[Rfam]
RNA sequence: GUCAUUUUGACCACACUGCCGAAGACAGCAGGUGCCGAAAGGCAUAAGUUGAAAACGCCUGCCGAGGAAACAUUCAUCAUACGGAAUGAUUUUUGACCUCUUAUGUCUGCGGAUGUAAGAGGUUUUUUGCGGCGGUA
Numbered sequence: 001g002u003c004a005u006u007u008u009g010a011c012c013a014c015a016c017u018g019c020c021g022a023a024g025a026c027a028g029c030a031g032g033u034g035c036c037g038a039a040a041g042g043c044a045u046a047a048g049u050u051g052a053a054a055a056c057g058c059c060u061g062c063c064g065a066g067g068a069a070a071c072a073u074u075c076a077u078c079a080u081a082c083g084g085a086a087u088g089a090u091u092u093u094u095g096a097c098c099u100c101u102u103a104u105g106u107c108u109g110c111g112g113a114u115g116u117a118a119g120a121g122g123u124u125u126u127u128u129g130c131g132g133c134g135g136u137a
Stems, first nucleotide, its partner, number of pairs: 028062006034043003097122010
Overview
The family of this 137-nucleotide RNA sequence from Oscillospiraceae bacterium Marseille-Q3528 is "Ribosomal protein L10 leader". The organism belongs to Oscillospiraceae, within Bacteria. A search with the family's covariance model found it, with a score of 74 bits.